Shown here is a 181-nucleotide RNA from Pseudothauera rhizosphaerae, a member of the family "6S / SsrS RNA". It is annotated as a non-coding RNA gene. The base pairs follow the family's consensus structure, which is taken from published work. The organism belongs to Pseudothauera, within Bacteria.
RNA sequence: AAUCCCCUGCAGUGUUCGUCGAAGCCGUAGAUUCCUUGAACCAAUGUCGAGAGACUUGGUCGCGGACCGUAGUGCCGGCGGUGUGCAUGCCCCGAUAGGGGAAGCCUGAAGCGGUGGGAAUGCGACCACCCUGAACCCUAGGUUCAGGAUGCCCGGCAGAGACGGCACAGGCGGGGGGCCA
Dot-bracket structure: ..((((((((.((((.(((.............(((.((((((...............(((.(((..(.....((((.((.....((...((((....))))..)).....)))))).)..))).))).............)))))))))............)))))))..))))))))...
Numbered sequence: 001a002a003u004c005c006c007c008u009g010c011a012g013u014g015u016u017c018g019u020c021g022a023a024g025c026c027g028u029a030g031a032u033u034c035c036u037u038g039a040a041c042c043a044a045u046g047u048c049g050a051g052a053g054a055c056u057u058g059g060u061c062g063c064g065g066a067c068c069g070u071a072g073u074g075c076c077g078g079c080g081g082u083g084u085g086c087a088u089g090c091c092c093c094g095a096u097a098g099g100g101g102a103a104g105c106c107u108g109a110a111g112c113g114g115u116g117g118g119a120a121u122g123c124g125a126c127c128a129c130c131c132u133g134a135a136c137c138c139u140a141g142g143u144u145c146a147g148g149a150u151g152c153c154c155g156g157c158a159g160a161g162a163c164g165g166c167a168c169a170g171g172c173g174g175g176g177g178g179c180c181a
Stems, first nucleotide, its partner, number of pairs: 003178008012168004017164003033149003037146006058127003062123003067118001073116004078112002085105002090101004